Fluoride riboswitch aptamer (crcB RNA motif): a 63-nucleotide RNA sequence from Pseudomonas aeruginosa. It is one of the family's seed sequences.

RNA sequence: UUGCCGACAGGAGAUGGCAUUCCUCCUUCAACCGCCCCUGGGGCUGAUGAUGCCUACGCAUGA
Numbered sequence: 001u002u003g004c005c006g007a008c009a010g011g012a013g014a015u016g017g018c019a020u021u022c023c024u025c026c027u028u029c030a031a032c033c034g035c036c037c038c039u040g041g042g043g044c045u046g047a048u049g050a051u052g053c054c055u056a057c058g059c060a061u062g063a
Stems, first nucleotide, its partner, number of pairs: 010026004016054006034044004
Dot-bracket structure: .........[[[[..((((((.]]]].......((((...))))....)))))).........